About this RNA: Shown here is a 126-nucleotide RNA sequence from Ensifer meliloti, a member of the family "Alphaproteobacterial ar14". About the family: Smr14C2 was renamed NfeR1 (Nodule Formation Efficiency RNA) highly expressed in salt stress and during the symbiotic interaction on legume roots. Lineage of the source: Bacteria > Alphaproteobacteria > Rhizobiaceae > Ensifer > Ensifer meliloti.

RNA sequence: CGAUAUGCGAGCGACCUUUCCUCCUCCCGAGUUCGCUUGCGGGAUCAGCGCUACUCCUCCUCCCGGAAUGCUGAUCGGUUCUUUUGGAAAAGCCUGCCGCACCUCCUCCCGCGGCAGGCUUUUUCG
Numbered sequence: 001c002g003a004u005a006u007g008c009g010a011g012c013g014a015c016c017u018u019u020c021c022u023c024c025u026c027c028c029g030a031g032u033u034c035g036c037u038u039g040c041g042g043g044a045u046c047a048g049c050g051c052u053a054c055u056c057c058u059c060c061u062c063c064c065g066g067a068a069u070g071c072u073g074a075u076c077g078g079u080u081c082u083u084u085u086g087g088a089a090a091a092g093c094c095u096g097c098c099g100c101a102c103c104u105c106c107u108c109c110c111g112c113g114g115c116a117g118g119c120u121u122u123u124u125c126g
Stems, first nucleotide, its partner, number of pairs: 007040003011036004016031002043076008052067001090121011